[Rfam]
RNA sequence: AUACCCGUCGUUGGCGCCCCCGUUGGGGGCGUUGCCAGAGCUCUCGCCCAUGGGGUGAGGGUUCUGGAGGAUGGGAUAAAUUAUGCAACAGGGAAUUUACCCGGUUGCUCUUU
Numbered sequence: 001a002u003a004c005c006c007g008u009c010g011u012u013g014g015c016g017c018c019c020c021c022g023u024u025g026g027g028g029g030c031g032u033u034g035c036c037a038g039a040g041c042u043c044u045c046g047c048c049c050a051u052g053g054g055g056u057g058a059g060g061g062u063u064c065u066g067g068a069g070g071a072u073g074g075g076a077u078a079a080a081u082u083a084u085g086c087a088a089c090a091g092g093g094a095a096u097u098u099a100c101c102c103g104g105u106u107g108c109u110c111u112u113u
Stems, first nucleotide, its partner, number of pairs: 001077002004074002007072003012034007019026002035067015085108005091102003
This 113-nucleotide RNA sequence from Orthohepacivirus hominis belongs to the Rfam family "J750 non-coding RNA (containing SLSL761 and SL783)".
It is one of the family's seed sequences.
Taxonomically the source falls in Hepatitis C virus genotype 2 (Viruses, Orthornavirae, Flasuviricetes, Orthohepacivirus).
By type it is a cis-regulatory element.